[Rfam]
RNA sequence: AAGAGGAACAACCACAGUGGCAGAGUCCAGCUCUGGAGCCCUGGAUUCAGCUCCUGCAGUAACUACAGAGCUCUCACUCUGCAAGGGCCUGGUUGCUCCAGUGGCGGG
Dot-bracket structure: ..(((.(.((.((.....((..(((...(((((((.(...(((.............)))....).))))))))))..))......))..))..).)))..........
Numbered sequence: 001a002a003g004a005g006g007a008a009c010a011a012c013c014a015c016a017g018u019g020g021c022a023g024a025g026u027c028c029a030g031c032u033c034u035g036g037a038g039c040c041c042u043g044g045a046u047u048c049a050g051c052u053c054c055u056g057c058a059g060u061a062a063c064u065a066c067a068g069a070g071c072u073c074u075c076a077c078u079c080u081g082c083a084a085g086g087g088c089c090u091g092g093u094u095g096c097u098c099c100a101g102u103g104g105c106g107g108g
Stems, first nucleotide, its partner, number of pairs: 003098003007094001009091002012087002019079002023075003029072007037064001041059003